[Rfam]
Nucleotides: 100
Stems, first nucleotide, its partner, number of pairs: 020084006030046005056076006
Number, partner (000 for none) and nucleotide at each position: 001000c002000a003000u004000g005000u006000u007000a008000a009000g010000a011000u012000g013000a014000g015000u016000c017000c018000a019000a020084u021083u022082u023081a024080u025079u026000u027000a028000u029000a030046c031045c032044c033043u034042g035000g036000a037000u038000a039000u040000g041000g042034c043033a044032g045031g046030g047000c048000g049000u050000u051000u052000c053000u054000a055000c056076c057075u058074c059073a060072c061071a062000c063000c064000a065000a066000a067000g068000u069000a070000a071061u072060g073059u074058g075057g076056g077000a078000c079025a080024a081023u082022a083021a084020a085000g086000g087000u088000g089000c090000u091000u092000u093000u094000u095000a096000c097000u098000g099000a100000c

Purine riboswitch aptamer: a 100-nucleotide sequence from Lactovum miscens. A search with the family's covariance model found it, with a score of 47 bits. Lineage of the source: Bacteria > Bacillati > Bacillota > Lactobacillales > Lactovum.